mir-172 microRNA precursor family: a 148-nucleotide RNA sequence from Triticum aestivum. Its family is annotated with miRNA-mediated post-transcriptional gene silencing and RISC complex in the Gene Ontology. A search with the family's covariance model found it, with a score of 82 bits. NCBI's taxonomy places the organism under Eukaryota, Embryophyta, Liliopsida, Triticodae, Triticum. The literature on the family includes a 2004 paper in Mol Cell by Jones-Rhoades and Bartel, "Computational Identification of Plant MicroRNAs and Their Targets, Including a Stress-Induced miRNA". mir-172 has been experimentally verified in Arabidopsis thaliana. This family is thought to target mRNAs coding for APETALA2-like transcription factors. The mature sequence is excised from the 3' arm of the hairpin.
RNA sequence: GUGUUUGCGGGCGCGGCAUCAUCAAGAUUCACAUCCAUCCCAUCCACGCAUCCUUCGGUUCGUUUCCAAAACGAAACGAUCGACAAUGCGUUGGAUGGAUAUAUAUAGAUGUGCAUGAGAAUCUUGAUGAUGCUGCGGCGGCACACAA
Numbered sequence: 001g002u003g004u005u006u007g008c009g010g011g012c013g014c015g016g017c018a019u020c021a022u023c024a025a026g027a028u029u030c031a032c033a034u035c036c037a038u039c040c041c042a043u044c045c046a047c048g049c050a051u052c053c054u055u056c057g058g059u060u061c062g063u064u065u066c067c068a069a070a071a072c073g074a075a076a077c078g079a080u081c082g083a084c085a086a087u088g089c090g091u092u093g094g095a096u097g098g099a100u101a102u103a104u105a106u107a108g109a110u111g112u113g114c115a116u117g118a119g120a121a122u123c124u125u126g127a128u129g130a131u132g133c134u135g136c137g138g139c140g141g142c143a144c145a146c147a148a
Stems, first nucleotide, its partner, number of pairs: 010139001012137019032117002